[Rfam]
The family of this 256-nucleotide sequence from Desulfofarcimen acetoxidans is "Group II catalytic intron D1-D4-6". The sequence is in the family's curated seed alignment. About the family: Group II introns are found in rRNA, tRNA and mRNA of organelles in fungi, plants and protists, and also in mRNA in bacteria. Lineage of the source: Bacteria > Clostridia > Eubacteriales > Peptococcaceae > Desulfofarcimen acetoxidans.
Nucleotides: 256
Stems, first nucleotide, its partner, number of pairs: 012032005020223001022221001034085001036083001041080003045075001046071007055062002141250001142248001144247006163241006169196003174190004201235004205230006
Number, partner (000 for none) and nucleotide at each position: 001000a002000g003000a004000a005000a006000c007000c008000u009000g010000c011000c012032g013031a014030g015029g016028u017000a018000a019000a020223a021000g022221u023000c024000a025000g026000a027000a028016a029015c030014c031013u032012u033000g034085u035000a036083g037000c038000u039000a040000g041080g042079a043078u044000a045075g046071c047070a048069g049068g050067g051066u052065u053000a054000a055062a056061g057000g058000a059000a060000a061056c062055u063000g064000a065052g066051a067050u068049u069048c070047u071046g072000g073000a074000g075045u076000c077000u078043a079042u080041c081000g082000a083036c084000a085034a086000u087000a088000u089000u090000a091000u092000c093000c094000a095000a096000g097000g098000g099000a100000u101000g102000a103000u104000a105000g106000c107000g108000a109000g110000u111000u112000g113000c114000c115000a116000g117000g118000c119000c120000g121000u122000a123000g124000c125000g126000a127000a128000a129000g130000c131000g132000a133000a134000c135000g136000c137000a138000u139000a140000g141250g142248u143000g144247g145246c146245c147244u148243c149242g150000a151000a152000a153000g154000u155000g156000c157000g158000u159000a160000g161000u162000c163241c164240c165239g166238a167237a168236g169196g170195c171194u172000g173000a174190g175189c176188c177187c178000g179000c180000a181000a182000c183000c184000g185000u186000a187177g188176g189175g190174u191000g192000a193000a194171a195170g196169c197000a198000g199000c200000a201235u202234g203233g204232a205230c206229a207228g208227u209226u210225g211000a212000a213000a214000a215000c216000u217000g218000a219000c220000u221022g222000a223020u224000a225210c226209a227208a228207c229206u230205g231000u232204u233203c234202c235201a236168c237167u238166u239165c240164g241163g242149c243148g244147g245146g246145g247144u248142g249000g250141u251000a252000g253000c254000g255000a256000c